[Rfam]
RNA sequence: AAGUGUAACAGCUCUUUUAGAAUUUGUCUAGCAGGUCUUCCAGUCCUUACCAGAAGGUCCCC
Numbered sequence: 001a002a003g004u005g006u007a008a009c010a011g012c013u014c015u016u017u018u019a020g021a022a023u024u025u026g027u028c029u030a031g032c033a034g035g036u037c038u039u040c041c042a043g044u045c046c047u048u049a050c051c052a053g054a055a056g057g058u059c060c061c062c
Stems, first nucleotide, its partner, number of pairs: 034059007043050002
The family of this 62-nucleotide RNA sequence from Microcebus murinus is "U7 small nuclear RNA". Rfam describes the family as follows. Animal histone pre-mRNAs are spliced by a different mechanism than nuclear pre-mRNAs and self-splicing introns. The family's consensus secondary structure was predicted with PFOLD.